This 160-nucleotide RNA sequence from Cronobacter sakazakii belongs to the Rfam family "sroC RNA". Rfam's curators write: This family consists of a number of bacterial sroC RNA genes of around 160 bases in length. sroC is found in several Enterobacterial species. It base-pairs with GcvB. This interaction triggers the degradation of GcvB by RNase E, alleviating the GcvB-mediated mRNA repression of other amino acid-related transport and metabolic genes. A search with the family's covariance model found it, with a score of 111 bits. The organism belongs to Cronobacter sakazakii, within Bacteria. It is annotated as a small RNA.

[Rfam]
RNA sequence: ACUAAUUACAACCAUUAAGGGGCGGGUCACCCUGCCCUCAUGAUUGAAGAAGCAAGCCCGGACAGACUAUACGUCGGUUGGCCGUUCCCCAACCGGCGCGAACAAAGAGGCUUCUCAUCAAUCUUAGGGGGUAGCGCUGCUACCCUUCUUUUUUUUCGGA
Dot-bracket structure: ...........(.......((((((.....)).))))((.(.(((((.((............(.........(((((((((.......)))))))))..)..............)).)))))....).))............................).